[Rfam]
RNA sequence: ACAUUCCUUCGGGGUCGGGUGAAAUUCCCAAUCGGCGGUGAUGAAGUAUAGCUUCCCAGUCCGCUACCCGCACGGUUUUAGUCCAUGCGGUGGAUCCGGUGAAACUCCGGAACCGACAGUGACAGUCUGGAUGGGAGAAGGAAUUU
Numbered sequence: 001a002c003a004u005u006c007c008u009u010c011g012g013g014g015u016c017g018g019g020u021g022a023a024a025u026u027c028c029c030a031a032u033c034g035g036c037g038g039u040g041a042u043g044a045a046g047u048a049u050a051g052c053u054u055c056c057c058a059g060u061c062c063g064c065u066a067c068c069c070g071c072a073c074g075g076u077u078u079u080a081g082u083c084c085a086u087g088c089g090g091u092g093g094a095u096c097c098g099g100u101g102a103a104a105c106u107c108c109g110g111a112a113c114c115g116a117c118a119g120u121g122a123c124a125g126u127c128u129g130g131a132u133g134g135g136a137g138a139a140g141g142a143a144u145u146u
Stems, first nucleotide, its partner, number of pairs: 003144008017029003031126002033115002035064004059113002068090002095111005117129003

Annotation
This 146-nucleotide sequence from Lentibacillus halodurans belongs to the Rfam family "FMN riboswitch aptamer (RFN element)". The match comes from Rfam's covariance-model search (111 bits). The organism belongs to Lentibacillus, within Bacteria.